[Rfam]
RNA sequence: UCGUGAGGACGACCUCACCACCUGAGCGGUGUACCAACGGGGACGGCCCUG
Numbered sequence: 001u002c003g004u005g006a007g008g009a010c011g012a013c014c015u016c017a018c019c020a021c022c023u024g025a026g027c028g029g030u031g032u033a034c035c036a037a038c039g040g041g042g043a044c045g046g047c048c049c050u051g
Base pairs, nucleotide, nucleotide: 001020003018004017005016006015007014008013038051039050040049041048042047